[Rfam]
RNA sequence: AGAGAAAUCUUAGCGCUGGCUCUGCCCAUCGUGUGUGGGCAGAGGACGAGGAGAAGGUUGUCGAGACGUCAGCGGAUGCCUUCCGGAGUUGCCGCUCCGAGAGUGUGCCGGGAAAGCAGGGGAGCGAUUUCCUGGACAAAGCGGUACAUGCGGCAGACA
Numbered sequence: 001a002g003a004g005a006a007a008u009c010u011u012a013g014c015g016c017u018g019g020c021u022c023u024g025c026c027c028a029u030c031g032u033g034u035g036u037g038g039g040c041a042g043a044g045g046a047c048g049a050g051g052a053g054a055a056g057g058u059u060g061u062c063g064a065g066a067c068g069u070c071a072g073c074g075g076a077u078g079c080c081u082u083c084c085g086g087a088g089u090u091g092c093c094g095c096u097c098c099g100a101g102a103g104u105g106u107g108c109c110g111g112g113a114a115a116g117c118a119g120g121g122g123a124g125c126g127a128u129u130u131c132c133u134g135g136a137c138a139a140a141g142c143g144g145u146a147c148a149u150g151c152g153g154c155a156g157a158c159a
Stems, first nucleotide, its partner, number of pairs: 020044008029035001053083005061072001063070002084099005103149007117134007

glmS glucosamine-6-phosphate activated ribozyme aptamer: a 159-nucleotide RNA from Dongibacter bovis. It scores 88 bits against the family's covariance model. It is annotated as a riboswitch. Pairs were carried over by alignment from the consensus structure, which is taken from published work. Rfam describes the family as follows. This entry contains a glucosamine-6-phosphate activated ribozyme that is found in the mRNA for GlmS. GlmS is an enzyme that uses fructose-6-phosphate and glutamine to generate glucosamine-6-phosphate. The ribozyme catalyses self cleavage of the glmS mRNA that is thought to regulate GlmS activity. NCBI's taxonomy places the organism under Bacteria, Bacillota, Negativicutes, Selenomonadaceae, Dongibacter.